The record is a 145-nucleotide RNA from Pseudomonas sp. TAD18, which matches "Pseudomonas sRNA P14" in Rfam. A search with the family's covariance model found it, with a score of 91 bits. The organism belongs to Pseudomonas, within Bacteria. It is annotated as a small RNA.
Nucleotides: 145
Base pairs, nucleotide, nucleotide: 035078036077039074041072042071046070047069048068049067052064082124083123084122086120087119089117090116091115093113094112095111096110097109098108100105128145129144130143131142132141
Number, partner (000 for none) and nucleotide at each position: 001000c002000u003000g004000a005000c006000u007000g008000u009000u010000u011000u012000u013000c014000a015000a016000g017000c018000a019000c020000a021000a022000u023000c024000u025000g026000u027000u028000a029000a030000a031000g032000c033000u034000a035078g036077c037000c038000c039074a040000u041072g042071a043000c044000c045000a046070g047069c048068c049067a050000u051000u052064a053000c054000c055000a056000a057000u058000u059000a060000u061000u062000u063000u064052u065000u066000u067049u068048g069047g070046u071042u072041c073000u074039u075000g076000c077036g078035c079000u080000a081000g082124g083123u084122c085000a086120g087119u088000u089117u090116a091115c092000u093113u094112a095111c096110u097109a098108c099000a100105a101000g102000u103000a104000a105100u106000g107000g108098g109097u110096a111095g112094u113093a114000u115091g116090u117089a118000c119087g120086c121000c122084g123083g124082c125000u126000g127000u128145u129144u130143c131142c132141u133000c134000a135000u136000g137000u138000u139000g140000a141132a142131g143130g144129a145128g